[Rfam]
RNA sequence: UUUGCAAGUGAUGACAACAUAGACAGGGACAUCUGCACUCCCAUUGAGUUUGAUGACAGUGUCUUGGGAAUAAUAUUUAUCGGAUGCUGA
Numbered sequence: 001u002u003u004g005c006a007a008g009u010g011a012u013g014a015c016a017a018c019a020u021a022g023a024c025a026g027g028g029a030c031a032u033c034u035g036c037a038c039u040c041c042c043a044u045u046g047a048g049u050u051u052g053a054u055g056a057c058a059g060u061g062u063c064u065u066g067g068g069a070a071u072a073a074u075a076u077u078u079a080u081c082g083g084a085u086g087c088u089g090a
Stems, first nucleotide, its partner, number of pairs: 002089001004087003
Shown here is a 90-nucleotide RNA from Dendrobium nobile, a member of the family "Small nucleolar RNA R44/J54/Z268 family". It is annotated as a C/D-box small nucleolar RNA. Rfam links the family to the GO terms RNA processing and nucleolus. Pairs were carried over by alignment from the consensus structure, which was predicted with PFOLD.